[Rfam]
RNA sequence: CUGAUGGCGGCGCAUGGGUGGAAAUCGGUGUCGAUCGCCCAAUUCCCCUUCGAACUGAUGAGAUGUUCGAAGCUGGAAAACGCCUAAAUGUCAG
Numbered sequence: 001c002u003g004a005u006g007g008c009g010g011c012g013c014a015u016g017g018g019u020g021g022a023a024a025u026c027g028g029u030g031u032c033g034a035u036c037g038c039c040c041a042a043u044u045c046c047c048c049u050u051c052g053a054a055c056u057g058a059u060g061a062g063a064u065g066u067u068c069g070a071a072g073c074u075g076g077a078a079a080a081c082g083c084c085u086a087a088a089u090g091u092c093a094g
Base pairs, nucleotide, nucleotide: 001094002093003092004091005090009084010083011082012081015041016040017039018038024035025034026033027032043078044077045076046075048072049071050070051069052068053067054066055065
The record is a 94-nucleotide sequence, which matches "L4-Archaeoglobi ribosomal protein leades" in Rfam. Rfam classes the family as a cis-regulatory leader.